Shown here is a 91-nucleotide RNA sequence from Sciurus carolinensis, a member of the family "Small nucleolar SNORD12/SNORD106". A reference for the family is Huttenhofer et al. (2001), "RNomics: an experimental approach that identifies 201 candidates for novel, small, non-messenger RNAs in mouse", EMBO J. It scores 100 bits against the family's covariance model. Gene Ontology terms of the family: nucleolus and RNA processing.

[Rfam]
RNA sequence: GCUGGUGCAAAUGAUGAUUUCACUUUUUUCCCCAUCAGAUCGACAAUGCUGAUCUCUUUUAACACUUGCCAGUUAUUUCUGAUACACCAGC
Numbered sequence: 001g002c003u004g005g006u007g008c009a010a011a012u013g014a015u016g017a018u019u020u021c022a023c024u025u026u027u028u029u030c031c032c033c034a035u036c037a038g039a040u041c042g043a044c045a046a047u048g049c050u051g052a053u054c055u056c057u058u059u060u061a062a063c064a065c066u067u068g069c070c071a072g073u074u075a076u077u078u079c080u081g082a083u084a085c086a087c088c089a090g091c
Stems, first nucleotide, its partner, number of pairs: 001091007009083001